[Rfam]
Nucleotides: 090
Base pairs, nucleotide, nucleotide: 002089003088004087005086006085007084
Number, partner (000 for none) and nucleotide at each position: 001000u002089g003088a004087u005086g006085g007084c008000a009000g010000u011000g012000a013000u014000g015000a016000u017000u018000u019000u020000u021000u022000u023000u024000a025000a026000c027000u028000u029000a030000u031000u032000a033000u034000g035000u036000u037000c038000a039000c040000c041000u042000g043000a044000u045000a046000u047000g048000c049000a050000a051000a052000u053000a054000u055000g056000a057000g058000g059000g060000u061000g062000u063000a064000c065000c066000g067000u068000c069000a070000c071000u072000a073000c074000c075000u076000c077000a078000u079000c080000u081000g082000a083000u084007g085006c086005c087004a088003u089002c090000u
The family of this 90-nucleotide RNA from Choloepus hoffmanni is "Small nucleolar RNA SNORD11B". The family is grouped with related families in Rfam's "SNORD11 clan". The family's RNA type in Rfam is C/D-box small nucleolar RNA. For this family Rfam cites "snoSeeker: an advanced computational package for screening of guide and orphan snoRNA genes in the human genome" (Yang et al., Nucleic Acids Res, 2006). Pairs were carried over by alignment from the consensus structure, which was predicted with WAR. Taxonomically the source falls in Choloepus (Eukaryota, Craniata, Theria, Folivora).